Shown here is a 46-nucleotide RNA from Neoluteolibacter luteus, a member of the family "Acido-Lenti-1 RNA". A search with the family's covariance model found it, with a score of 50 bits.
[Rfam]
RNA sequence: CCUAGGCCUAGCGGCCUAGGCUGAUAUAGGACGCGCCUUCAGCGCU
Numbered sequence: 001c002c003u004a005g006g007c008c009u010a011g012c013g014g015c016c017u018a019g020g021c022u023g024a025u026a027u028a029g030g031a032c033g034c035g036c037c038u039u040c041a042g043c044g045c046u
Base pairs, nucleotide, nucleotide: 001020002019003018004017005016006015007014008013033045034044035043036042
Description: NCBI's taxonomy places the organism under Bacteria, Verrucomicrobiota, Verrucomicrobiia, Verrucomicrobiales, Neoluteolibacter.